[Rfam]
RNA sequence: GGGCAGUUGGGCUCGUGCCAGAUGCGCGUUUACACGAGCCCUGAAUACUGUAAAUGCACUAUCUGGUACGACAUCUCUUCUGUC
Numbered sequence: 001g002g003g004c005a006g007u008u009g010g011g012c013u014c015g016u017g018c019c020a021g022a023u024g025c026g027c028g029u030u031u032a033c034a035c036g037a038g039c040c041c042u043g044a045a046u047a048c049u050g051u052a053a054a055u056g057c058a059c060u061a062u063c064u065g066g067u068a069c070g071a072c073a074u075c076u077c078u079u080c081u082g083u084c
Stems, first nucleotide, its partner, number of pairs: 009077003014070009024059001026057009
RNA: mir-277 microRNA precursor family
Organism: Pogonomyrmex barbatus